[Rfam]
RNA: FMN riboswitch aptamer (RFN element)
Organism: Megasphaera sp. An286
RNA sequence: AUAUAUCUUCAGGGCAGGGUGAAAUUCCCGAUCGGCGGUAUAGUCCGCGAACGCUACGGCGUAGGAGCCAUGUGCUCGUGAUUUGGUGCAAUUCCAAAACCGACAGUAUAGUCUGGAUGGAAGAAGAUACGA
Number, nucleotide and partner (000 for none) at each position: 001a000002u000003a000004u129005a128006u127007c126008u125009u124010c123011a000012g000013g000014g000015c000016a000017g029018g028019g027020u000021g000022a000023a000024a000025u000026u000027c019028c018029c017030g000031a112032u111033c102034g101035g048036c047037g046038g045039u000040a000041u000042a000043g100044u099045c038046c037047g036048c035049g000050a000051a000052c000053g076054c000055u000056a000057c000058g000059g000060c000061g000062u000063a000064g000065g000066a000067g000068c000069c000070a000071u000072g000073u000074g000075c000076u053077c000078g000079u000080g000081a000082u098083u097084u096085g095086g094087u000088g000089c000090a000091a000092u000093u000094c086095c085096a084097a083098a082099a044100c043101c034102g033103a000104c115105a114106g113107u000108a000109u000110a000111g032112u031113c106114u105115g104116g000117a000118u000119g000120g000121a000122a000123g010124a009125a008126g007127a006128u005129a004130c000131g000132a000